The record is a 60-nucleotide sequence from Cynara cardunculus, which matches "Plastid-psbA-4 3UTR RNA" in Rfam.
Rfam describes the family as follows. Plastid psbA-4 is a non-coding RNA (ncRNA) present in plastids.
Rfam classes the family as a cis-regulatory element.
The base pairs follow the family's consensus structure, which was predicted with LocARNA.
The literature on the family includes a 2023 paper in Plant Commun by Richter et al., "Retrograde signaling in plants: A critical review focusing on the GUN pathway and beyond".
RNA sequence: AUAAAAAAGGAGCAAUAACGUCCUCUUGAUAAAACAAGAAGGAAGCUAUUGCUCCUUUUG
Numbered sequence: 001a002u003a004a005a006a007a008a009g010g011a012g013c014a015a016u017a018a019c020g021u022c023c024u025c026u027u028g029a030u031a032a033a034a035c036a037a038g039a040a041g042g043a044a045g046c047u048a049u050u051g052c053u054c055c056u057u058u059u060g
Stems, first nucleotide, its partner, number of pairs: 006058012021043002024039005